[Rfam]
drz-agam-1 ribozyme: a 79-nucleotide RNA sequence from Hermetia illucens. Its family is annotated with catalytic activity in the Gene Ontology.
RNA sequence: UACUACUAAACCCUAUCUCGACCUCCACGUGGUGACAGCUGGGAGCCCUUUCGUAACGAAAAGCUGCAGCCGGAGAAGG
Dot-bracket structure: ...........(((.(.((((((.......)))...........(.(.(((((...))))).).).....))).).)))
Overview:
The organism belongs to Hermetia, within Eukaryota. Rfam 15.1 lists 10,507 matches to the family in 53 species.